[Rfam]
RNA sequence: AAUGCAUGUCAGUCCCUCAUUCGGCCUGCUUAGCUGAUUUUUCAUACAAUAUUGCUAGCUGCCUUGUGAAGGGCUUACGUGUGAU
Numbered sequence: 001a002a003u004g005c006a007u008g009u010c011a012g013u014c015c016c017u018c019a020u021u022c023g024g025c026c027u028g029c030u031u032a033g034c035u036g037a038u039u040u041u042u043c044a045u046a047c048a049a050u051a052u053u054g055c056u057a058g059c060u061g062c063c064u065u066g067u068g069a070a071g072g073g074c075u076u077a078c079g080u081g082u083g084a085u
Base pairs, nucleotide, nucleotide: 004082005081006080007079008078009077011075012074013073014072015071017069018068019067020066023063024062030058031057032056033055034054
mir-980 microRNA precursor family: an 85-nucleotide RNA sequence from Drosophila busckii. A search with the family's covariance model found it, with a score of 75 bits. Its family is annotated with RISC complex and miRNA-mediated post-transcriptional gene silencing in the Gene Ontology. Lineage of the source: Eukaryota > Opisthokonta > Neoptera > Endopterygota > Dorsilopha. The family has 8 seed sequences and 121 matches in Rfam 15.1. Pairs were carried over by alignment from the consensus structure, which was predicted with RNAalifold.